Cyano-1 RNA: a 69-nucleotide RNA from Prochlorococcus marinus. Rfam's curators put it in the seed alignment. The family's RNA type in Rfam is small RNA. Lineage of the source: Bacteria > Bacillati > Cyanophyceae > Prochlorococcaceae > Prochlorococcus marinus. The family has 265 seed sequences and 283 matches in Rfam 15.1. The base pairs follow the family's consensus structure, which is taken from published work.

RNA sequence: AACAUCGUGAGGGGUGCGAAUCAACAGUUCAGGGUCGAAACAAGGCAAGACUCCUGAUUCUGUCCCACC
Numbered sequence: 001a002a003c004a005u006c007g008u009g010a011g012g013g014g015u016g017c018g019a020a021u022c023a024a025c026a027g028u029u030c031a032g033g034g035u036c037g038a039a040a041c042a043a044g045g046c047a048a049g050a051c052u053c054c055u056g057a058u059u060c061u062g063u064c065c066c067a068c069c
Base pairs, nucleotide, nucleotide: 024063025062026061027060029057030056031055032054033053034051035050036049